Description: terC RNA: a 56-nucleotide RNA sequence from Pseudaminobacter salicylatoxidans. Rfam classes the family as a cis-regulatory element. The family has 129 seed sequences and 1,112 matches in Rfam 15.1.

RNA sequence: GCACCAGACCGGGCCCCUCUGGCGGUUCCCCUGAACCGUGAUGUCGGACUGGAUAU
Numbered sequence: 001g002c003a004c005c006a007g008a009c010c011g012g013g014c015c016c017c018u019c020u021g022g023c024g025g026u027u028c029c030c031c032u033g034a035a036c037c038g039u040g041a042u043g044u045c046g047g048a049c050u051g052g053a054u055a056u
Base pairs, nucleotide, nucleotide: 006050007049009047010046011045012044022039023038024037025036026035027034028033